[Rfam]
RNA sequence: AGAGGCAGCCGGAUGGCCGCUGCCGUCCCCGGCGACGGGGGCGGGGGAGGAAAGUCCGGGCUCCACAUGGACACGGUGCCGGGUAACGCCCGGCGGGGGCGACCCCAGGGAAAGUGCCACAGAAAGCAGACCACCCGCCGGGCCUGUUCCGCAAGGGGCCGGCUGCGGGCAAGGGCGAAAGGGUGCGGUAAGAGCGCACCGCGGCGUCGGCAACGAUGCCGGCAUGGUAAACCCCACCGGGAGCAAGACCGAAUAGGAACGAUGGCGACAUCUUGAUGUCGCAGCCUGUCCACGGGCCGGUCGUUCGGGUAGGUCGCGCGAGGCGUCCGGCAACGGGCGCCCUAGAGGAAUGGCCAUCCAUCGCCUGUUGGGAUUUCCAUGGCGGAAUCUUAAUCGGCAGGGACAGAACCCGGCUUACAGGCUGCCUCCCGCC
Number, nucleotide and partner (000 for none) at each position: 001a000002g428003a427004g426005g425006c424007a423008g422009c421010c420011g418012g358013a357014u356015g355016g354017c353018c352019g000020c047021u046022g000023c044024c043025g042026u041027c040028c039029c038030c037031g000032g000033c000034g000035a000036c000037g030038g029039g028040g027041g026042c025043g024044g023045g000046g021047g020048a000049g000050g000051a000052a416053a415054g414055u000056c413057c412058g411059g410060g409061c243062u242063c241064c240065a000066c000067a000068u000069g291070g290071a289072c288073a000074c239075g238076g237077u236078g235079c093080c092081g091082g090083g089084u000085a000086a000087c000088g000089c083090c082091c081092g080093g079094c108095g106096g105097g104098g103099g000100c000101g000102a000103c098104c097105c096106c095107a000108g094109g234110g233111a000112a000113a000114g232115u231116g228117c227118c226119a000120c000121a000122g000123a000124a000125a000126g000127c000128a000129g000130a000131c174132c173133a000134c169135c168136c167137g166138c165139c000140g163141g000142g000143c000144c000145u000146g000147u000148u000149c000150c000151g000152c000153a000154a000155g000156g000157g000158g000159c000160c000161g000162g000163c140164u000165g138166c137167g136168g135169g134170c000171a000172a000173g132174g131175g000176c000177g000178a000179a000180a000181g000182g200183g199184u198185g197186c196187g195188g000189u000190a000191a000192g000193a000194g000195c187196g186197c185198a184199c183200c182201g223202c221203g220204g219205c218206g217207u216208c215209g214210g000211c000212a000213a000214c209215g208216a207217u206218g205219c204220c203221g202222g000223c201224a000225u000226g118227g117228u116229a000230a000231a115232c114233c110234c109235c078236a077237c076238c075239g074240g064241g063242a062243g061244c000245a000246a000247g315248a314249c313250c312251g000252a000253a000254u000255a000256g000257g306258a305259a304260c303261g302262a301263u000264g000265g000266c000267g000268a000269c000270a000271u000272c000273u000274u000275g000276a000277u000278g000279u000280c000281g000282c299283a000284g297285c296286c295287u000288g072289u071290c070291c069292a000293c000294g000295g286296g285297c284298c000299g282300g000301u262302c261303g260304u259305u258306c257307g000308g000309g000310u000311a000312g250313g249314u248315c247316g000317c000318g000319c000320g000321a000322g341323g340324c339325g338326u337327c336328c335329g334330g000331c000332a000333a000334c329335g328336g327337g326338c325339g324340c323341c322342c000343u000344a000345g000346a000347g000348g000349a000350a000351u000352g018353g017354c016355c015356a014357u013358c012359c000360a000361u000362c000363g000364c000365c000366u000367g000368u000369u000370g000371g000372g000373a000374u000375u000376u000377c000378c000379a000380u000381g000382g000383c000384g000385g000386a000387a000388u000389c000390u000391u000392a000393a000394u000395c000396g000397g000398c000399a000400g000401g000402g000403a000404c000405a000406g000407a000408a000409c060410c059411c058412g057413g056414c054415u053416u052417a000418c011419a000420g010421g009422c008423u007424g006425c005426c004427u003428c002429c000430c000431g000432c000433c000
The family of this 433-nucleotide sequence from Arboricoccus pini is "Bacterial RNase P class A". It is annotated as a ribozyme.